[Rfam]
Nucleotides: 047
Stems, first nucleotide, its partner, number of pairs: 003047003007042004015036004019031003
Number, partner (000 for none) and nucleotide at each position: 001000c002000u003047g004046g005045u006000u007042c008041c009040g010039g011000u012000u013000c014000a015036c016035g017034u018033c019031c020030g021029u022000c023000u024000u025000c026000a027000g028000a029021g030020c031019g032000c033018g034017a035016c036015g037000a038000c039010c040009c041008g042007g043000c044000g045005a046004c047003c